[Rfam]
RNA: mir-277 microRNA precursor family
Organism: Cryptotermes secundus
RNA sequence: UGAGGGCUGGAGUGCGUUCCAGAGGCGCGUUUACAACGCUGAAGUUUGAAAUCCUGUAAAUGCACUAUCUGGUACGACAUUCCAGCACAG
Numbered sequence: 001u002g003a004g005g006g007c008u009g010g011a012g013u014g015c016g017u018u019c020c021a022g023a024g025g026c027g028c029g030u031u032u033a034c035a036a037c038g039c040u041g042a043a044g045u046u047u048g049a050a051a052u053c054c055u056g057u058a059a060a061u062g063c064a065c066u067a068u069c070u071g072g073u074a075c076g077a078c079a080u081u082c083c084a085g086c087a088c089a090g
Stems, first nucleotide, its partner, number of pairs: 008084004015076003019072005025065001027063009